[Rfam]
RNA sequence: AAUUACAAUAGUGUAAUGGACUUAUGCUGUACCCACAGCGUACUGGAUAGAACCCAGAUAGGACUACUUAAUAGGAGAAAAAAAAUG
Numbered sequence: 001a002a003u004u005a006c007a008a009u010a011g012u013g014u015a016a017u018g019g020a021c022u023u024a025u026g027c028u029g030u031a032c033c034c035a036c037a038g039c040g041u042a043c044u045g046g047a048u049a050g051a052a053c054c055c056a057g058a059u060a061g062g063a064c065u066a067c068u069u070a071a072u073a074g075g076a077g078a079a080a081a082a083a084a085a086u087g
Stems, first nucleotide, its partner, number of pairs: 002017005023042007043057004

Rfam assigns this 87-nucleotide sequence to the family "freshwater-2 RNA". Pairs were carried over by alignment from the consensus structure, which is taken from published work.